[Rfam]
RNA sequence: GAUCAAUGAUGGAAAUAGCCUAAUCUGAGCAUCAGGAAAGACCCCUUAGUCUACCUGAUGCAUAAUCUCUAUAGUUCUGAGA
Numbered sequence: 001g002a003u004c005a006a007u008g009a010u011g012g013a014a015a016u017a018g019c020c021u022a023a024u025c026u027g028a029g030c031a032u033c034a035g036g037a038a039a040g041a042c043c044c045c046u047u048a049g050u051c052u053a054c055c056u057g058a059u060g061c062a063u064a065a066u067c068u069c070u071a072u073a074g075u076u077c078u079g080a081g082a
Stems, first nucleotide, its partner, number of pairs: 029061005039052004
RNA: Small nucleolar RNA U2-19